Rfam assigns this 85-nucleotide RNA sequence from Rynchops niger to the family "Small nucleolar RNA SNORD45".
RNA sequence: GGUCAGUGAUGAGCGUUGGCAUGUAUUAGCUGACGGGAGGUUGAUGUCCAUCACCGCUUUAGCUCUAGAAUUACUCUGAGACCCA
Numbered sequence: 001g002g003u004c005a006g007u008g009a010u011g012a013g014c015g016u017u018g019g020c021a022u023g024u025a026u027u028a029g030c031u032g033a034c035g036g037g038a039g040g041u042u043g044a045u046g047u048c049c050a051u052c053a054c055c056g057c058u059u060u061a062g063c064u065c066u067a068g069a070a071u072u073a074c075u076c077u078g079a080g081a082c083c084c085a
Stems, first nucleotide, its partner, number of pairs: 001083004

The literature on the family includes a 2001 paper in EMBO J by Huttenhofer et al., "RNomics: an experimental approach that identifies 201 candidates for novel, small, non-messenger RNAs in mouse". It scores 56 bits against the family's covariance model. The family's consensus secondary structure was predicted with PFOLD.